Background
Shown here is an 87-nucleotide RNA sequence from Halodesulfovibrio spirochaetisodalis, a member of the family "sRNA-Xcc1". Rfam 15.1 lists 421 matches to the family in 299 species. It is annotated as a small RNA. It scores 63 bits against the family's covariance model. The literature on the family includes a 1996 paper in Mol Plant Microbe Interact by Wengelnik et al., "HrpG, a key hrp regulatory protein of Xanthomonas campestris pv. vesicatoria is homologous to two-component response regulators". Taxonomically the source falls in Halodesulfovibrio (Bacteria, Pseudomonadati, Desulfovibrionales, Desulfovibrionaceae). The base pairs follow the family's consensus structure, which was predicted with RNAalifold.
RNA sequence: AAUCGGGAGUGCAGAGGUCAUACAACACCUGCAAGGGAAAAGCCUCUCGCCGACUAUGGGCGGUGUUUAGCUCCCGAUUUUUUAAUU
Numbered sequence: 001a002a003u004c005g006g007g008a009g010u011g012c013a014g015a016g017g018u019c020a021u022a023c024a025a026c027a028c029c030u031g032c033a034a035g036g037g038a039a040a041a042g043c044c045u046c047u048c049g050c051c052g053a054c055u056a057u058g059g060g061c062g063g064u065g066u067u068u069a070g071c072u073c074c075c076g077a078u079u080u081u082u083u084a085a086u087u
Base pairs, nucleotide, nucleotide: 001079002078003077004076005075006074007073008072009071013047014046015045016044018042028037029036030035048065049064050063051062052061